[Rfam]
RNA sequence: ACACUUAAUUUAUUAACUCACACACAUAUCGGCACAUACGCCGGGGUGCCCUUGAAGGGUCGGAUGUAUGGGAUAUGUGGAGGCCUAAC
Numbered sequence: 001a002c003a004c005u006u007a008a009u010u011u012a013u014u015a016a017c018u019c020a021c022a023c024a025c026a027u028a029u030c031g032g033c034a035c036a037u038a039c040g041c042c043g044g045g046g047u048g049c050c051c052u053u054g055a056a057g058g059g060u061c062g063g064a065u066g067u068a069u070g071g072g073a074u075a076u077g078u079g080g081a082g083g084c085c086u087a088a089c
Stems, first nucleotide, its partner, number of pairs: 023079008035070005041063003048060005

Rfam assigns this 89-nucleotide RNA sequence from Grimontia hollisae to the family "t44 RNA". Rfam classes the family as a small RNA. The family's consensus secondary structure was predicted with LocARNA.